mir-9195 microRNA precursor family: an 87-nucleotide sequence from Myotis brandtii. The match comes from Rfam's covariance-model search (94 bits).
RNA sequence: AGAGGCCCUCCAUGGCUGGGGUGGAACGCUUGCCUCGUCGCCGCGGCGACAAAGCAAGCAUUCCACCAGGCUACUCAUACUGCCCUC
Numbered sequence: 001a002g003a004g005g006c007c008c009u010c011c012a013u014g015g016c017u018g019g020g021g022u023g024g025a026a027c028g029c030u031u032g033c034c035u036c037g038u039c040g041c042c043g044c045g046g047c048g049a050c051a052a053a054g055c056a057a058g059c060a061u062u063c064c065a066c067c068a069g070g071c072u073a074c075u076c077a078u079a080c081u082g083c084c085c086u087c
Base pairs, nucleotide, nucleotide: 004084005083006082013073014072015071016070017069020067021066022065023064024063025062026061028059029058030057031056032055033054037050038049039048040047041046